[Rfam]
RNA sequence: UAAAAGUCGUAACAAGGUUUCGCUACUUUAAGUAUGGAGCAAUCUCAAUGAUUCUUCCGUGGCGACACUUAUGGAAGCCUUUGCAGCCCCGCAAGGGGUGGGGAGCACGACUGUAAAUAAGUCUCCCUUCAUGCAAGUCAGCACCCGCUGGCAACACGAUCGAAUUGACGGGGACGUCCUAAAGCCUACAACACCAACCCGCCCGGGAAACCGAGGCGGGGGCCCGUGCUAACUACACGGGGUGGUAAAAGAAUGUAUGGAUACUCCCUCCGGGGAACUAUGGAUAAUCCGCAGCGAAGACCCUAAGUAGCGCUAGCUAUACGGGUAACGUUCACAGACUAAGUGGUUGUGGGUGGAGCCUAGCUCUGCUUAAGAUAUAGUCGGGCCCUGCGUGAAAGCGCAGG
Numbered sequence: 001u002a003a004a005a006g007u008c009g010u011a012a013c014a015a016g017g018u019u020u021c022g023c024u025a026c027u028u029u030a031a032g033u034a035u036g037g038a039g040c041a042a043u044c045u046c047a048a049u050g051a052u053u054c055u056u057c058c059g060u061g062g063c064g065a066c067a068c069u070u071a072u073g074g075a076a077g078c079c080u081u082u083g084c085a086g087c088c089c090c091g092c093a094a095g096g097g098g099u100g101g102g103g104a105g106c107a108c109g110a111c112u113g114u115a116a117a118u119a120a121g122u123c124u125c126c127c128u129u130c131a132u133g134c135a136a137g138u139c140a141g142c143a144c145c146c147g148c149u150g151g152c153a154a155c156a157c158g159a160u161c162g163a164a165u166u167g168a169c170g171g172g173g174a175c176g177u178c179c180u181a182a183a184g185c186c187u188a189c190a191a192c193a194c195c196a197a198c199c200c201g202c203c204c205g206g207g208a209a210a211c212c213g214a215g216g217c218g219g220g221g222g223c224c225c226g227u228g229c230u231a232a233c234u235a236c237a238c239g240g241g242g243u244g245g246u247a248a249a250a251g252a253a254u255g256u257a258u259g260g261a262u263a264c265u266c267c268c269u270c271c272g273g274g275g276a277a278c279u280a281u282g283g284a285u286a287a288u289c290c291g292c293a294g295c296g297a298a299g300a301c302c303c304u305a306a307g308u309a310g311c312g313c314u315a316g317c318u319a320u321a322c323g324g325g326u327a328a329c330g331u332u333c334a335c336a337g338a339c340u341a342a343g344u345g346g347u348u349g350u351g352g353g354u355g356g357a358g359c360c361u362a363g364c365u366c367u368g369c370u371u372a373a374g375a376u377a378u379a380g381u382c383g384g385g386c387c388c389u390g391c392g393u394g395a396a397a398g399c400g401c402a403g404g
Base pairs, nucleotide, nucleotide: 155351156350157349158348159347161345162344166293167292169291170290171289172288177284178283179282294331295330300326301325302324303323308319309318310317311316335383337382338381339380340379341378353369354368355367356366357365358364359363389402390401391400392399393398
RNA: Group I catalytic intron